[Rfam]
RNA sequence: AAAAAGGGCUUCUGUCGUGUGUGGCACGGGGGCGGGGCUAGCCCCGCUCCCGCGGAAUCGACAUCAAGAGAUUUCGGAAGCACAAUUUUUGUGAAGGUGGGCUGCCGGUAACCGUCUGUUCCGGUGCCCCG
Numbered sequence: 001a002a003a004a005a006g007g008g009c010u011u012c013u014g015u016c017g018u019g020u021g022u023g024g025c026a027c028g029g030g031g032g033c034g035g036g037g038c039u040a041g042c043c044c045c046g047c048u049c050c051c052g053c054g055g056a057a058u059c060g061a062c063a064u065c066a067a068g069a070g071a072u073u074u075c076g077g078a079a080g081c082a083c084a085a086u087u088u089u090u091g092u093g094a095a096g097g098u099g100g101g102c103u104g105c106c107g108g109u110a111a112c113c114g115u116c117u118g119u120u121c122c123g124g125u126g127c128c129c130c131g
Base pairs, nucleotide, nucleotide: 008081009080010079011078012077013026014025015024016023017022027052028051029050030049031048032047033046034045035044036043037042053076054075055074056073057072058071059070099129100128101127102126104125105124106123107122108121110120111119112118
This 131-nucleotide sequence from Oenanthe oenanthe belongs to the Rfam family "U11 spliceosomal RNA". The organism belongs to Oenanthe, within Eukaryota.